[Rfam]
RNA sequence: GGCGAUAAAUGAUGCCGUGUAAUAGAUGCAGCGGACCCGGGGGCAGUACCCGGCGGCUCCACCACAAACCCCGGUAACGGGGCUUCUGACGGGGCCGAACCAGGAUCGACGUGUAUUCAAAGACGGUGUUUUUGCCCGGCCUGAAUGAGCCGUUAAACCGUUCAAAACCACAAGUGCAAACGAUAACGAAGCACUCGCUCUCGCAGCGUAA
Numbered sequence: 001g002g003c004g005a006u007a008a009a010u011g012a013u014g015c016c017g018u019g020u021a022a023u024a025g026a027u028g029c030a031g032c033g034g035a036c037c038c039g040g041g042g043g044c045a046g047u048a049c050c051c052g053g054c055g056g057c058u059c060c061a062c063c064a065c066a067a068a069c070c071c072c073g074g075u076a077a078c079g080g081g082g083c084u085u086c087u088g089a090c091g092g093g094g095c096c097g098a099a100c101c102a103g104g105a106u107c108g109a110c111g112u113g114u115a116u117u118c119a120a121a122g123a124c125g126g127u128g129u130u131u132u133u134g135c136c137c138g139g140c141c142u143g144a145a146u147g148a149g150c151c152g153u154u155a156a157a158c159c160g161u162u163c164a165a166a167a168c169c170a171c172a173a174g175u176g177c178a179a180a181c182g183a184u185a186a187c188g189a190a191g192c193a194c195u196c197g198c199u200c201u202c203g204c205a206g207c208g209u210a211a
Base pairs, nucleotide, nucleotide: 001136002135003134004133005132015126016125017124018123027115028114029113031112032111033110037053038052039051040050041049054097055096056095057094058093059092060091137152138151139150140149